[Rfam]
RNA: Small nucleolar RNA snR32
Organism: Hansenula anomala
RNA sequence: AACAUCAACCGCGUAUUCCAUCCUCUACAAAAAGGUAUUGUCUUUUUUAUUCCUAUAUGGAUGAUACUGGGGGGCCUCAUGUGGAAUAUAUGCGUAGAUAGAAUUAAAGAACGUUGCUGGGCGCCCGAUGUUGAAUCCUAAAAACUUGAGAUGUUGGGAAUCAGUUGUUUCUACAUGU
Numbered sequence: 001a002a003c004a005u006c007a008a009c010c011g012c013g014u015a016u017u018c019c020a021u022c023c024u025c026u027a028c029a030a031a032a033a034g035g036u037a038u039u040g041u042c043u044u045u046u047u048u049a050u051u052c053c054u055a056u057a058u059g060g061a062u063g064a065u066a067c068u069g070g071g072g073g074g075c076c077u078c079a080u081g082u083g084g085a086a087u088a089u090a091u092g093c094g095u096a097g098a099u100a101g102a103a104u105u106a107a108a109g110a111a112c113g114u115u116g117c118u119g120g121g122c123g124c125c126c127g128a129u130g131u132u133g134a135a136u137c138c139u140a141a142a143a144a145c146u147u148g149a150g151a152u153g154u155u156g157g158g159a160a161u162c163a164g165u166u167g168u169u170u171c172u173a174c175a176u177g178u
Stems, first nucleotide, its partner, number of pairs: 010094003013089009027050001029048002033044003109171002111168003124158002128154005136149002